Rfam assigns this 178-nucleotide RNA sequence from Romeriopsis navalis to the family "Antisense RNA which regulates isiA expression".
[Rfam]
RNA sequence: GAUAACCAAAAAUUCGUAAUGGAUCAAUAUUCGCAGCAUCAACGAUUCGGACAGAUUGAAGAUUGGCAUCAUAUAUUCCGCCCCAUUGAGUCGCUCUGAGCACAAACGCCAAAGCCCCGAGCCCUAGAAACAGCAAAUGAUGCCCCAGGAUCACGCCAAGUGCGCGCGGAUCGUUCCA
Numbered sequence: 001g002a003u004a005a006c007c008a009a010a011a012a013u014u015c016g017u018a019a020u021g022g023a024u025c026a027a028u029a030u031u032c033g034c035a036g037c038a039u040c041a042a043c044g045a046u047u048c049g050g051a052c053a054g055a056u057u058g059a060a061g062a063u064u065g066g067c068a069u070c071a072u073a074u075a076u077u078c079c080g081c082c083c084c085a086u087u088g089a090g091u092c093g094c095u096c097u098g099a100g101c102a103c104a105a106a107c108g109c110c111a112a113a114g115c116c117c118c119g120a121g122c123c124c125u126a127g128a129a130a131c132a133g134c135a136a137a138u139g140a141u142g143c144c145c146c147a148g149g150a151u152c153a154c155g156c157c158a159a160g161u162g163c164g165c166g167c168g169g170a171u172c173g174u175u176c177c178a
Base pairs, nucleotide, nucleotide: 136175137174138173139172140171141170144169145168148165
A reference for the family is Duhring et al. (2006), "An internal antisense RNA regulates expression of the photosynthesis gene isiA", Proc Natl Acad Sci U S A.